Rfam assigns this 105-nucleotide RNA sequence from Actinobacillus succinogenes to the family "Aggregatibacter sRNA 22". The base pairs follow the family's consensus structure, which was predicted with RNAfold. The literature on the family includes a 2017 paper in DNA Res by Oogai et al., "Small RNA repertoires and their intraspecies variation in Aggregatibacter actinomycetemcomitans". It scores 52 bits against the family's covariance model.
RNA sequence: GUGCGGUCACAAAAAGCAAAACUUUUUGAAUCAAACGCUGACUUUGUCGACGGACUAAAAGGGUGAGCAAUUCUUUUUCAAGGAUUACCAAUAAAAAAUCAUAAU
Numbered sequence: 001g002u003g004c005g006g007u008c009a010c011a012a013a014a015a016g017c018a019a020a021a022c023u024u025u026u027u028g029a030a031u032c033a034a035a036c037g038c039u040g041a042c043u044u045u046g047u048c049g050a051c052g053g054a055c056u057a058a059a060a061g062g063g064u065g066a067g068c069a070a071u072u073c074u075u076u077u078u079c080a081a082g083g084a085u086u087a088c089c090a091a092u093a094a095a096a097a098a099u100c101a102u103a104a105u
Base pairs, nucleotide, nucleotide: 010028011027012026013025014024015023016022036052037051039049040048041047042046053064055062056061067088069086070085071084072083073082074081075080091102092101094099